[Rfam]
Pseudomonas sRNA P1: a 179-nucleotide sequence from Pseudomonas sp. M47T1.
RNA sequence: CCCCCGGUAUUAUUGGCGUUAUGGGUUGCGAACGAGCUUAGCGUUGUUCAUUUUUUUUCACAACACCCCCGUAAAAAAUACAACACGCCCCACCGAACAUUUCAUUUGAGGGCCUUCAAGGACAGAAAAAACGCCCCAAAAUGCAACAAAAAUAGCUUCAAGGCGCCAAAUCAGGGCAA
Numbered sequence: 001c002c003c004c005c006g007g008u009a010u011u012a013u014u015g016g017c018g019u020u021a022u023g024g025g026u027u028g029c030g031a032a033c034g035a036g037c038u039u040a041g042c043g044u045u046g047u048u049c050a051u052u053u054u055u056u057u058u059c060a061c062a063a064c065a066c067c068c069c070c071g072u073a074a075a076a077a078a079u080a081c082a083a084c085a086c087g088c089c090c091c092a093c094c095g096a097a098c099a100u101u102u103c104a105u106u107u108g109a110g111g112g113c114c115u116u117c118a119a120g121g122a123c124a125g126a127a128a129a130a131a132c133g134c135c136c137c138a139a140a141a142u143g144c145a146a147c148a149a150a151a152a153u154a155g156c157u158u159c160a161a162g163g164c165g166c167c168a169a170a171u172c173a174g175g176g177c178a179a
Stems, first nucleotide, its partner, number of pairs: 023100001025098003034091001036089001041088004046084003052078006059071001163177002166174001
The literature on the family includes a 2006 paper in Nucleic Acids Res by Livny et al., "Identification of 17 Pseudomonas aeruginosa sRNAs and prediction of sRNA-encoding genes in 10 diverse pathogens using the bioinformatic tool sRNAPredict2". About the family: This small RNA (sRNA) was computationally identified in the genome of the opportunistic pathogen Pseudomonas aeruginosa and its expression verified by northern blot analysis. There appears to be two related copies of P1 sRNA in the P.aeruginosa PA01 genome and both copies appear to be located upstream of predicted glutamine synthetase genes. This sRNA appears to be conserved amongst several Pseudomonas species. P1 has a predicted Rho independent terminator at the 3' end but the function of P1 is unknown. It scores 136 bits against the family's covariance model.